[Rfam]
RNA: Enterobacterial sRNA STnc240
RNA sequence: UCGGAUUAGUGCAGAAUACGCGCCAAGAAAUAGCCGACGUUUUAAUCACUCGUCGGUUAUUUUUUUGC
Numbered sequence: 001u002c003g004g005a006u007u008a009g010u011g012c013a014g015a016a017u018a019c020g021c022g023c024c025a026a027g028a029a030a031u032a033g034c035c036g037a038c039g040u041u042u043u044a045a046u047c048a049c050u051c052g053u054c055g056g057u058u059a060u061u062u063u064u065u066u067g068c
Stems, first nucleotide, its partner, number of pairs: 011021002031059009